[Rfam]
RNA sequence: ACUGCAAGGUCAAGGCCACAGCAGAAGUACUCGCAACAAGGCCUGUCAGAUACCAAUGAUAUCUGUGAAUUCUACU
Numbered sequence: 001a002c003u004g005c006a007a008g009g010u011c012a013a014g015g016c017c018a019c020a021g022c023a024g025a026a027g028u029a030c031u032c033g034c035a036a037c038a039a040g041g042c043c044u045g046u047c048a049g050a051u052a053c054c055a056a057u058g059a060u061a062u063c064u065g066u067g068a069a070u071u072c073u074a075c076u
Base pairs, nucleotide, nucleotide: 014043015042016041017040020076021075023073024072025071026070028038047065048064049063050062051061052060
This 76-nucleotide RNA from Crocodylus porosus belongs to the Rfam family "Mammalian CPEB3 ribozyme".
For this family Rfam cites "A genomewide search for ribozymes reveals an HDV-like sequence in the human CPEB3 gene" (Salehi-Ashtiani et al., Science, 2006).
Pairs were carried over by alignment from the consensus structure, which is taken from published work.